[Rfam]
About this RNA:
The family of this 217-nucleotide sequence from Halalkalibacter nanhaiisediminis is "SR1 sRNA". Taxonomically the source falls in Halalkalibacter (Bacteria, Bacillati, Bacillota, Bacilli). The base pairs follow the family's consensus structure, which is taken from published work. Its family is annotated with negative regulation of translational initiation and translation repressor activity, mRNA regulatory element binding in the Gene Ontology. It is annotated as a small RNA.
RNA sequence: AAUAAGCAAACGCAAACGCUUUCAAAUUAGCAUAAAGGAGAUGGAGAGAAUGGGUACAAUUAUUUGCCAAUCAUGCAACAAGACGAUCGAUGUGUUCGAAGGUGAAAAGGUAACUAAACUUUAUGCGAAAGGAAAUAGCUGCGUACAUUGUAAAACUACAGAACAGAAAAAAUAAAUGAAAAGCUGAAAGACUUAUACAGAAGUCUUUCAGCUUUUU
Numbered sequence: 001a002a003u004a005a006g007c008a009a010a011c012g013c014a015a016a017c018g019c020u021u022u023c024a025a026a027u028u029a030g031c032a033u034a035a036a037g038g039a040g041a042u043g044g045a046g047a048g049a050a051u052g053g054g055u056a057c058a059a060u061u062a063u064u065u066g067c068c069a070a071u072c073a074u075g076c077a078a079c080a081a082g083a084c085g086a087u088c089g090a091u092g093u094g095u096u097c098g099a100a101g102g103u104g105a106a107a108a109g110g111u112a113a114c115u116a117a118a119c120u121u122u123a124u125g126c127g128a129a130a131g132g133a134a135a136u137a138g139c140u141g142c143g144u145a146c147a148u149u150g151u152a153a154a155a156c157u158a159c160a161g162a163a164c165a166g167a168a169a170a171a172a173u174a175a176a177u178g179a180a181a182a183g184c185u186g187a188a189a190g191a192c193u194u195a196u197a198c199a200g201a202a203g204u205c206u207u208u209c210a211g212c213u214u215u216u217u
Base pairs, nucleotide, nucleotide: 016111017110019109020108021107022106025103027100028099030097032095033094051086053084055082063078064077143159144158145157180215181214182213183212184211185210186209187208188207189206190205191204192203